[Rfam]
RNA sequence: ACCGUACGCCGAAUCCUGCCCCCGGUCCGGUGACCCCUCCGACUUGCAUCUGGGGCAGGAGCGGGGGAACCACGUUCCUCCGGGCGUCGCCUCCUUCGAUGCCCUUGGGGUGAAGCCGAAUACGCACAGGGCGUUCGGUCGGGCUCCCAGCCCGAACCCGACAGCUCACCUCGCAGGCGUAGGGGAAGGAUCA
Numbered sequence: 001a002c003c004g005u006a007c008g009c010c011g012a013a014u015c016c017u018g019c020c021c022c023c024g025g026u027c028c029g030g031u032g033a034c035c036c037c038u039c040c041g042a043c044u045u046g047c048a049u050c051u052g053g054g055g056c057a058g059g060a061g062c063g064g065g066g067g068a069a070c071c072a073c074g075u076u077c078c079u080c081c082g083g084g085c086g087u088c089g090c091c092u093c094c095u096u097c098g099a100u101g102c103c104c105u106u107g108g109g110g111u112g113a114a115g116c117c118g119a120a121u122a123c124g125c126a127c128a129g130g131g132c133g134u135u136c137g138g139u140c141g142g143g144c145u146c147c148c149a150g151c152c153c154g155a156a157c158c159c160g161a162c163a164g165c166u167c168a169c170c171u172c173g174c175a176g177g178c179g180u181a182g183g184g185g186a187a188g189g190a191u192c193a
Base pairs, nucleotide, nucleotide: 007179008178009177010176014060015059016058017057018056019055020054021053022052061174062173063172064171065170066169071107072106108159109158110157116138117137118136119135120134121133141153142152143151144150
The family of this 193-nucleotide RNA sequence from Parafrankia soli is "c-di-AMP riboswitch aptamer (ydaO/yuaA leader)".